RNA sequence: AGGGGUAUAGCUCAGUUGGUAGAGCAGCGGUCUCCAAAACCGCGUGCCGAGGGUUCGAAUCCUUCUGCCCCUG
Numbered sequence: 001a002g003g004g005g006u007a008u009a010g011c012u013c014a015g016u017u018g019g020u021a022g023a024g025c026a027g028c029g030g031u032c033u034c035c036a037a038a039a040c041c042g043c044g045u046g047c048c049g050a051g052g053g054u055u056c057g058a059a060u061c062c063u064u065c066u067g068c069c070c071c072u073g
Stems, first nucleotide, its partner, number of pairs: 001072007010025004027043005049065005
This 73-nucleotide RNA sequence from Massiliimalia timonensis belongs to the Rfam family "tRNA". A reference for the family is Lowe and Eddy (1997), "tRNAscan-SE: a program for improved detection of transfer RNA genes in genomic sequence", Nucleic Acids Res. Rfam links the family to the GO term triplet codon-amino acid adaptor activity.